[Rfam]
Overview:
Rfam assigns this 598-nucleotide part of an RNA from Antiopella cristata to the family "Eukaryotic small subunit ribosomal RNA". For this family Rfam cites "The comparative RNA web (CRW) site: an online database of comparative sequence and structure information for ribosomal, intron, and other RNAs" (Cannone et al., BMC Bioinformatics, 2002). The organism belongs to Antiopella, within Eukaryota.

RNA sequence: ACGGAAGGGCACCACCAGGAGUGGGGUCUGCCGGCUUAAUUUGACUCAACACGGGAAAACUCACCCGGUCCGGACACCGCAAGGAUUGACAGACUGAGGCUCAUUCUACGAUUCGGUGGGUGAUGGUGCAUGGCCGUUCUUAGUUGGUGGAGCGAUCUGUCUGGUUAAUUCCGAUAACGAACGAGACUCUACCCUGCUUGUUAGCGUGUCUUCGUACGGCUAACUCUGCGUCCGUGGCAGGUUACGGGUGGCCUCACUCCCCCUCUCCUCACGGUGGGGGCGAGCUGUCGGUCGUCAGUCCGCUCGGCGCGAAUUCACCCGAAUUCAUAACCCAAAUGGCUUCUUAGAGAGGACGGGCGGUGGCCAGCCGCACGAGAAAGAGUGAUAACAGGUCUGUGAUGCCCUUAGACGUCCGGGGCCGCACGCGUGCUACACUGGGGGGACCAGCGCGAUCUCGUCCUGACCCGACCGGUCUCGGGAAAGCUGCUGAGUUUCCCCCGUGCUCGGGACCGGGGCUUGUCCAUUGUGCCCCGCGAACGAGGAAUUCCCCGUAGGCACGGGUCAUAACCCCGUGCCGAUUACGUCCCUGCCCUUUGUA
Numbered sequence: 001a002c003g004g005a006a007g008g009g010c011a012c013c014a015c016c017a018g019g020a021g022u023g024g025g026g027u028c029u030g031c032c033g034g035c036u037u038a039a040u041u042u043g044a045c046u047c048a049a050c051a052c053g054g055g056a057a058a059a060c061u062c063a064c065c066c067g068g069u070c071c072g073g074a075c076a077c078c079g080c081a082a083g084g085a086u087u088g089a090c091a092g093a094c095u096g097a098g099g100c101u102c103a104u105u106c107u108a109c110g111a112u113u114c115g116g117u118g119g120g121u122g123a124u125g126g127u128g129c130a131u132g133g134c135c136g137u138u139c140u141u142a143g144u145u146g147g148u149g150g151a152g153c154g155a156u157c158u159g160u161c162u163g164g165u166u167a168a169u170u171c172c173g174a175u176a177a178c179g180a181a182c183g184a185g186a187c188u189c190u191a192c193c194c195u196g197c198u199u200g201u202u203a204g205c206g207u208g209u210c211u212u213c214g215u216a217c218g219g220c221u222a223a224c225u226c227u228g229c230g231u232c233c234g235u236g237g238c239a240g241g242u243u244a245c246g247g248g249u250g251g252c253c254u255c256a257c258u259c260c261c262c263c264u265c266u267c268c269u270c271a272c273g274g275u276g277g278g279g280g281c282g283a284g285c286u287g288u289c290g291g292u293c294g295u296c297a298g299u300c301c302g303c304u305c306g307g308c309g310c311g312a313a314u315u316c317a318c319c320c321g322a323a324u325u326c327a328u329a330a331c332c333c334a335a336a337u338g339g340c341u342u343c344u345u346a347g348a349g350a351g352g353a354c355g356g357g358c359g360g361u362g363g364c365c366a367g368c369c370g371c372a373c374g375a376g377a378a379a380g381a382g383u384g385a386u387a388a389c390a391g392g393u394c395u396g397u398g399a400u401g402c403c404c405u406u407a408g409a410c411g412u413c414c415g416g417g418g419c420c421g422c423a424c425g426c427g428u429g430c431u432a433c434a435c436u437g438g439g440g441g442g443a444c445c446a447g448c449g450c451g452a453u454c455u456c457g458u459c460c461u462g463a464c465c466c467g468a469c470c471g472g473u474c475u476c477g478g479g480a481a482a483g484c485u486g487c488u489g490a491g492u493u494u495c496c497c498c499c500g501u502g503c504u505c506g507g508g509a510c511c512g513g514g515g516c517u518u519g520u521c522c523a524u525u526g527u528g529c530c531c532c533g534c535g536a537a538c539g540a541g542g543a544a545u546u547c548c549c550c551g552u553a554g555g556c557a558c559g560g561g562u563c564a565u566a567a568c569c570c571c572g573u574g575c576c577g578a579u580u581a582c583g584u585c586c587c588u589g590c591c592c593u594u595u596g597u598a
Stems, first nucleotide, its partner, number of pairs: 001597003005594007014584002018548005023433001025431003029427002032425002034422002040055004064417005070411001075118005088106002092102002122405001125403004131399001132397001133393003136389003143182003147178002149158003162173003188381003193351001194349002197347002200344001203341003354374002357371005437499007451484001459479002463475001465472002506538001511533006554576008